[Rfam]
RNA sequence: ACAAAGGCUCUUUUCAGAGCCACACACUCUGAUAAAGAACAAGUUU
Number, nucleotide and partner (000 for none) at each position: 001a000002c000003a000004a000005a000006g021007g020008c019009u018010c017011u016012u000013u000014u000015c000016a011017g010018a009019g008020c007021c006022a000023c000024a000025c000026a000027c000028u000029c000030u000031g000032a000033u000034a000035a000036a000037g000038a000039a000040c000041a000042a000043g000044u000045u000046u000
Rfam assigns this 46-nucleotide RNA from Anabas testudineus to the family "Histone 3' UTR stem-loop". Gene Ontology term of the family: mRNA 3'-end processing by stem-loop binding and cleavage. The family's consensus secondary structure is taken from published work. By type it is a cis-regulatory element. The organism belongs to Anabas, within Eukaryota.